[Rfam]
RNA sequence: ACCGCCAUGGACGGCGGUGGUUUCAAACUUCGAGAGUUUGCGCUUGCCGCAAACUCUAAGAUUAAAAAUGUGCAUGGACGCACAUUUUUAAUCCACC
Number, nucleotide and partner (000 for none) at each position: 001a018002c017003c016004g015005c014006c013007a000008u000009g000010g000011a000012c000013g006014g005015c004016g003017g002018u001019g000020g000021u000022u000023u000024c000025a000026a000027a000028c000029u000030u000031c000032g000033a057034g056035a055036g054037u053038u052039u051040g050041c049042g048043c000044u000045u000046g000047c000048c042049g041050c040051a039052a038053a037054c036055u035056c034057u033058a000059a000060g093061a092062u091063u090064a089065a088066a087067a086068a085069u084070g083071u082072g081073c080074a000075u000076g000077g000078a000079c000080g073081c072082a071083c070084a069085u068086u067087u066088u065089u064090a063091a062092u061093c060094c000095a000096c000097c000
RNA: TD-2 RNA
Organism: Treponema denticola